[Rfam]
RNA sequence: UAUCCCUGACCUGGGUAGAGUGGCAGUUGGCUGGUGGUACCCAUCUCAUAUCAGCCAGGGACAAAGCUUACCCAGCCUGGGUUUGGGUCAGUGCUUAUGCCUGGUUCAUGCCGUGGAUCCAUGG
Numbered sequence: 001u002a003u004c005c006c007u008g009a010c011c012u013g014g015g016u017a018g019a020g021u022g023g024c025a026g027u028u029g030g031c032u033g034g035u036g037g038u039a040c041c042c043a044u045c046u047c048a049u050a051u052c053a054g055c056c057a058g059g060g061a062c063a064a065a066g067c068u069u070a071c072c073c074a075g076c077c078u079g080g081g082u083u084u085g086g087g088u089c090a091g092u093g094c095u096u097a098u099g100c101c102u103g104g105u106u107c108a109u110g111c112c113g114u115g116g117a118u119c120c121a122u123g124g
Stems, first nucleotide, its partner, number of pairs: 001063001003061006011054004018047003022041002025038001027036001068115001079112002086107002089104001091102001093100002
Dot-bracket structure: (.((((((..((((...(((.((.(.(........).).))...)))...)))).)))))).)....(..........((.....((.(.(.((....)).).).))...))..).........
RNA: Small nucleolar RNA SNORA48
Organism: Tupaia belangeri